The record is a 169-nucleotide RNA from Frankia casuarinae, which matches "c-di-AMP riboswitch aptamer (ydaO/yuaA leader)" in Rfam. It scores 60 bits against the family's covariance model. Taxonomically the source falls in Frankia (Bacteria, Bacillati, Actinomycetota, Frankiaceae).
RNA sequence: CCGCAGCUCCCUCCGAGAGAUCUUGGGCAGAAGCGGGGGAACCACGUUCCUCCGGGUGGCUCGUUGCGGGCCACCCUUGGGGUUAAGCCGUUACGCGCACGCCGCGGAAACGGCCGGGCUUCCCGGCCCGAACCCGACAGCUAACCUCGCAGGCGUACGGGAAGGACUC
Numbered sequence: 001c002c003g004c005a006g007c008u009c010c011c012u013c014c015g016a017g018a019g020a021u022c023u024u025g026g027g028c029a030g031a032a033g034c035g036g037g038g039g040a041a042c043c044a045c046g047u048u049c050c051u052c053c054g055g056g057u058g059g060c061u062c063g064u065u066g067c068g069g070g071c072c073a074c075c076c077u078u079g080g081g082g083u084u085a086a087g088c089c090g091u092u093a094c095g096c097g098c099a100c101g102c103c104g105c106g107g108a109a110a111c112g113g114c115c116g117g118g119c120u121u122c123c124c125g126g127c128c129c130g131a132a133c134c135c136g137a138c139a140g141c142u143a144a145c146c147u148c149g150c151a152g153g154c155g156u157a158c159g160g161g162a163a164g165g166a167c168u169c
Stems, first nucleotide, its partner, number of pairs: 001153002008031002033150006043079002080135003088113004116129004